A member of the RNA family "FMN riboswitch aptamer (RFN element)" from Rhodobacteraceae bacterium HTCC2083, 141 nucleotides long. Taxonomically the source falls in Paracoccaceae (Bacteria, Pseudomonadati, Pseudomonadota, Rhodobacterales).
[Rfam]
RNA sequence: CGAUGUUCUCAGGGCAGGGUGAAAGUCCCUACCGGCGGUGAUAGCCCGCGAGCGCUAGUGACCCUAAAGCGGAUCAUUGGGACAGCAGAUUUGGUGGAAUUCCAGAGCCGACGGUGAAAGUCCGGAUGAAAGAGAGCGGUU
Numbered sequence: 001c002g003a004u005g006u007u008c009u010c011a012g013g014g015c016a017g018g019g020u021g022a023a024a025g026u027c028c029c030u031a032c033c034g035g036c037g038g039u040g041a042u043a044g045c046c047c048g049c050g051a052g053c054g055c056u057a058g059u060g061a062c063c064c065u066a067a068a069g070c071g072g073a074u075c076a077u078u079g080g081g082a083c084a085g086c087a088g089a090u091u092u093g094g095u096g097g098a099a100u101u102c103c104a105g106a107g108c109c110g111a112c113g114g115u116g117a118a119a120g121u122c123c124g125g126a127u128g129a130a131a132g133a134g135a136g137c138g139g140u141u
Base pairs, nucleotide, nucleotide: 004138005137006136007135008134009133010132017029018028019027031121032120033110034109035049036048037047038046044108045107052086053085090106091105092104093103094102112124113123114122